RNA: Alphacoronavirus 5'UTR
RNA sequence: ACUUUUAAAGAUAAGUGCGUGUAGCGUAGCUGCCCACCUUUCUUUAACUUGACUCUUGUCAAUUCUACUCAACUAAACGAAAUUUUGUUACCACACAUUUUAUGUGGGUAACAUUUUGGUAAUUUCGUUUUUAUCUAGCUUGUUAACCAUUCUGAGGUAGGGGUUUGGCUGGCUGAGCGUGUUCCGUCACGCUUAGUAGGUGCUUCAGCUAGUUCCGUCUAGCUGUUGCGUGGAUCCUAGUUCCGUCUAGGUGAAACCUUACUCCCCUCAUUAUGGGAUCCAAGCACUUUAAAAUCCUUGUUGUUGAGGAUUCAGAAAUU
Numbered sequence: 001a002c003u004u005u006u007a008a009a010g011a012u013a014a015g016u017g018c019g020u021g022u023a024g025c026g027u028a029g030c031u032g033c034c035c036a037c038c039u040u041u042c043u044u045u046a047a048c049u050u051g052a053c054u055c056u057u058g059u060c061a062a063u064u065c066u067a068c069u070c071a072a073c074u075a076a077a078c079g080a081a082a083u084u085u086u087g088u089u090a091c092c093a094c095a096c097a098u099u100u101u102a103u104g105u106g107g108g109u110a111a112c113a114u115u116u117u118g119g120u121a122a123u124u125u126c127g128u129u130u131u132u133a134u135c136u137a138g139c140u141u142g143u144u145a146a147c148c149a150u151u152c153u154g155a156g157g158u159a160g161g162g163g164u165u166u167g168g169c170u171g172g173c174u175g176a177g178c179g180u181g182u183u184c185c186g187u188c189a190c191g192c193u194u195a196g197u198a199g200g201u202g203c204u205u206c207a208g209c210u211a212g213u214u215c216c217g218u219c220u221a222g223c224u225g226u227u228g229c230g231u232g233g234a235u236c237c238u239a240g241u242u243c244c245g246u247c248u249a250g251g252u253g254a255a256a257c258c259u260u261a262c263u264c265c266c267c268u269c270a271u272u273a274u275g276g277g278a279u280c281c282a283a284g285c286a287c288u289u290u291a292a293a294a295u296c297c298u299u300g301u302u303g304u305u306g307a308g309g310a311u312u313c314a315g316a317a318a319u320u
Stems, first nucleotide, its partner, number of pairs: 006046006013039001015037001021033005049062005079126006086113006094106005140283003148275003153270003160265005175194007206225007230258001236251005